This 84-nucleotide RNA from Stegodyphus mimosarum belongs to the Rfam family "Vault RNA". Rfam's curators write: This family of RNAs are found as part of the enigmatic vault ribonucleoprotein complex.
RNA sequence: GCGUAGGCAUCGUCUAGUGGUUACUUCGCAAUCCUUCAGCUUGACAUUGUACUAUUAUGACCACGGACGCAAUCCUGCGCUUUU
Numbered sequence: 001g002c003g004u005a006g007g008c009a010u011c012g013u014c015u016a017g018u019g020g021u022u023a024c025u026u027c028g029c030a031a032u033c034c035u036u037c038a039g040c041u042u043g044a045c046a047u048u049g050u051a052c053u054a055u056u057a058u059g060a061c062c063a064c065g066g067a068c069g070c071a072a073u074c075c076u077g078c079g080c081u082u083u084u
Stems, first nucleotide, its partner, number of pairs: 002079006012068004017064004026060003
It is annotated as a non-coding RNA gene. The organism belongs to Stegodyphus, within Eukaryota. The base pairs follow the family's consensus structure, which is taken from published work. On this family, see Stadler et al., Mol Biol Evol 2009: "Evolution of Vault RNAs". The family has 73 seed sequences and 2,873 matches in Rfam 15.1.